[Rfam]
RNA sequence: AUUUCCCGGAGAAUGGACUCCGGGAAGAUAGAAGAAAAAUCAAUUAAGAUUUGAAAUAAACGAGCAUAUUUC
Numbered sequence: 001a002u003u004u005c006c007c008g009g010a011g012a013a014u015g016g017a018c019u020c021c022g023g024g025a026a027g028a029u030a031g032a033a034g035a036a037a038a039a040u041c042a043a044u045u046a047a048g049a050u051u052u053g054a055a056a057u058a059a060a061c062g063a064g065c066a067u068a069u070u071u072c
Stems, first nucleotide, its partner, number of pairs: 003026009058071003

Plastid-rpl20 3UTR RNA: a 72-nucleotide RNA sequence from Paphiopedilum dianthum. Rfam's curators put it in the seed alignment. Rfam describes the family as follows. Plastid rpl20 is a non-coding RNA (ncRNA) recognised in plastids. NCBI's taxonomy places the organism under Eukaryota, Magnoliopsida, Liliopsida, Cypripedioideae, Paphiopedilum. It is annotated as a cis-regulatory element.